[Rfam]
This 204-nucleotide RNA sequence from Naumovozyma castellii belongs to the Rfam family "Small nucleolar RNA snR43". Its Rfam clan is "SNORA9 clan". Pairs were carried over by alignment from the consensus structure, which is taken from published work. Its family is annotated with nucleolus and RNA processing in the Gene Ontology. It is one of the family's seed sequences.
RNA sequence: CUCUCCGAUUUCUGCCUCAUUUUCUUUUGCUUCAAUAGAUUCAUGGGUUCUAAUUUUUGGAGAAGAAUAAGCUGUAUGACGACUCAAUUCACACAUUUUGAUACAACCGUGAUUGAGCGUGGUGCAGAUCGUGAGAUUACUUCAUUCGACUUGAUUAAUUCAAUUUAUUGUUUAUUUUUCAAGAUUUGGAGUGACUCUACAUUU
Numbered sequence: 001c002u003c004u005c006c007g008a009u010u011u012c013u014g015c016c017u018c019a020u021u022u023u024c025u026u027u028u029g030c031u032u033c034a035a036u037a038g039a040u041u042c043a044u045g046g047g048u049u050c051u052a053a054u055u056u057u058u059g060g061a062g063a064a065g066a067a068u069a070a071g072c073u074g075u076a077u078g079a080c081g082a083c084u085c086a087a088u089u090c091a092c093a094c095a096u097u098u099u100g101a102u103a104c105a106a107c108c109g110u111g112a113u114u115g116a117g118c119g120u121g122g123u124g125c126a127g128a129u130c131g132u133g134a135g136a137u138u139a140c141u142u143c144a145u146u147c148g149a150c151u152u153g154a155u156u157a158a159u160u161c162a163a164u165u166u167a168u169u170g171u172u173u174a175u176u177u178u179u180c181a182a183g184a185u186u187u188g189g190a191g192u193g194a195c196u197c198u199a200c201a202u203u204u
Stems, first nucleotide, its partner, number of pairs: 003062004016047004023039003072127006079120003083117005089112004133197003139192005150183005157176001160174001162172002